[Rfam]
RNA sequence: UCAAUAGGUAGAGGCGCAGGUUUUAUGACAAACCGCAGGCACGAACCGAGCUUGCGGCGGGAAAGGAAAACUUGCCGAAAGUUUGACGGCUCGGGUUCGCGGACGUCAGGCUUGGGACAACGCAUAAUAUGCGUUGUACUGUCACCGUAAGGUGGAGCGCUAUCGGCAUU
Numbered sequence: 001u002c003a004a005u006a007g008g009u010a011g012a013g014g015c016g017c018a019g020g021u022u023u024u025a026u027g028a029c030a031a032a033c034c035g036c037a038g039g040c041a042c043g044a045a046c047c048g049a050g051c052u053u054g055c056g057g058c059g060g061g062a063a064a065g066g067a068a069a070a071c072u073u074g075c076c077g078a079a080a081g082u083u084u085g086a087c088g089g090c091u092c093g094g095g096u097u098c099g100c101g102g103a104c105g106u107c108a109g110g111c112u113u114g115g116g117a118c119a120a121c122g123c124a125u126a127a128u129a130u131g132c133g134u135u136g137u138a139c140u141g142u143c144a145c146c147g148u149a150a151g152g153u154g155g156a157g158c159g160c161u162a163u164c165g166g167c168a169u170u
Stems, first nucleotide, its partner, number of pairs: 007164005016075009033060004079113010090102001114140002117137008142155005
The record is a 170-nucleotide sequence from Faecalibacterium sp. CAG:1138, which matches "Lysine riboswitch aptamer" in Rfam. Pairs were carried over by alignment from the consensus structure, which is taken from published work. NCBI's taxonomy places the organism under Bacteria, Bacillati, Bacillota, Eubacteriales, Faecalibacterium. Rfam's curators write: Riboswitches are metabolite binding domains within certain messenger RNAs that serve as precision sensors for their corresponding targets.